A member of the RNA family "Small nucleolar SNORD12/SNORD106" from Hemiprocne comata, 89 nucleotides long. For this family Rfam cites "RNomics: an experimental approach that identifies 201 candidates for novel, small, non-messenger RNAs in mouse" (Huttenhofer et al., EMBO J, 2001). Its family is annotated with nucleolus and RNA processing in the Gene Ontology. A search with the family's covariance model found it, with a score of 56 bits. The organism belongs to Hemiprocne, within Eukaryota.
RNA sequence: CCUGGUGUGAGUGAUGACAGUUUUUUCCCCGGCAGAGCGACAGUGUUGAUUCCUUACUGUUCAAGCCAAAUCAUGUAUGAUGCACCACC
Numbered sequence: 001c002c003u004g005g006u007g008u009g010a011g012u013g014a015u016g017a018c019a020g021u022u023u024u025u026u027c028c029c030c031g032g033c034a035g036a037g038c039g040a041c042a043g044u045g046u047u048g049a050u051u052c053c054u055u056a057c058u059g060u061u062c063a064a065g066c067c068a069a070a071u072c073a074u075g076u077a078u079g080a081u082g083c084a085c086c087a088c089c
Stems, first nucleotide, its partner, number of pairs: 003087007